[Rfam]
RNA sequence: UAUUGGGUGCGUUAACGAUAGGAACGGCAUCCUUUUUUUGCUCUAUACAUAACGCAGGUAGCAAAAAAAGAUAUAGUGGAUAGCGUGUUAAAAC
Numbered sequence: 001u002a003u004u005g006g007g008u009g010c011g012u013u014a015a016c017g018a019u020a021g022g023a024a025c026g027g028c029a030u031c032c033u034u035u036u037u038u039u040g041c042u043c044u045a046u047a048c049a050u051a052a053c054g055c056a057g058g059u060a061g062c063a064a065a066a067a068a069a070g071a072u073a074u075a076g077u078g079g080a081u082a083g084c085g086u087g088u089u090a091a092a093a094c
Base pairs, nucleotide, nucleotide: 015086016085017084019082020081024077025076029072030071031070035067036066037065038064039063040062041061042060
Record summary: Shown here is a 94-nucleotide RNA sequence from Pedobacter psychrophilus, a member of the family "Flavo-1 RNA". The match comes from Rfam's covariance-model search (55 bits). The family has 201 seed sequences and 7,497 matches in Rfam 15.1.